This 299-nucleotide RNA sequence from Pseudescherichia vulneris belongs to the Rfam family "Soft rot Enterobacteriaceae Rev 39 5'UTR". It is annotated as a cis-regulatory element. Rfam links the family to the GO term cellular response to starvation. For this family Rfam cites "Discovery and profiling of small RNAs responsive to stress conditions in the plant pathogen Pectobacterium atrosepticum" (Kwenda et al., BMC Genomics, 2016). It scores 157 bits against the family's covariance model. About the family: From bacteria cultured under starvation conditions.
[Rfam]
RNA sequence: AAAUCUUGUGUCGUUAGCAAAAACUGUGAUAACUCUUUAGGUAUUCCUUCGAACAAGAAGCCAGAAAGUACAGAAAAUGACAGCCCUUCUACGAGUGAUUAGCCUGGUCGUGAUUAGCGUGGUGGUGAUUAUUAUCCCACCGUGCGGGGCUGCACUUGGACGAGGAAAGGCUUAAAAAACAAGCCUUAACGAACUAAGACCCCCGCACCGAAAGGUCCGGGGGUUUUUUUAUGGCCUUAAAACAACAGCGAGGAGCAAAGAAUGGGUUGUAGCACAAAAUUCUGUUUCUCACGAUUUAC
Numbered sequence: 001a002a003a004u005c006u007u008g009u010g011u012c013g014u015u016a017g018c019a020a021a022a023a024c025u026g027u028g029a030u031a032a033c034u035c036u037u038u039a040g041g042u043a044u045u046c047c048u049u050c051g052a053a054c055a056a057g058a059a060g061c062c063a064g065a066a067a068g069u070a071c072a073g074a075a076a077a078u079g080a081c082a083g084c085c086c087u088u089c090u091a092c093g094a095g096u097g098a099u100u101a102g103c104c105u106g107g108u109c110g111u112g113a114u115u116a117g118c119g120u121g122g123u124g125g126u127g128a129u130u131a132u133u134a135u136c137c138c139a140c141c142g143u144g145c146g147g148g149g150c151u152g153c154a155c156u157u158g159g160a161c162g163a164g165g166a167a168a169g170g171c172u173u174a175a176a177a178a179a180c181a182a183g184c185c186u187u188a189a190c191g192a193a194c195u196a197a198g199a200c201c202c203c204c205g206c207a208c209c210g211a212a213a214g215g216u217c218c219g220g221g222g223g224u225u226u227u228u229u230u231a232u233g234g235c236c237u238u239a240a241a242a243c244a245a246c247a248g249c250g251a252g253g254a255g256c257a258a259a260g261a262a263u264g265g266g267u268u269g270u271a272g273c274a275c276a277a278a279a280u281u282c283u284g285u286u287u288c289u290c291a292c293g294a295u296u297u298a299c
Stems, first nucleotide, its partner, number of pairs: 006032004012026001013024001015022001037075002041071002044067002047064002049059001085253003090248001099240003102236001104234003109119003121141005127136003142161002145158004164190001169186002172183002196227010207216003254286004259281002263274002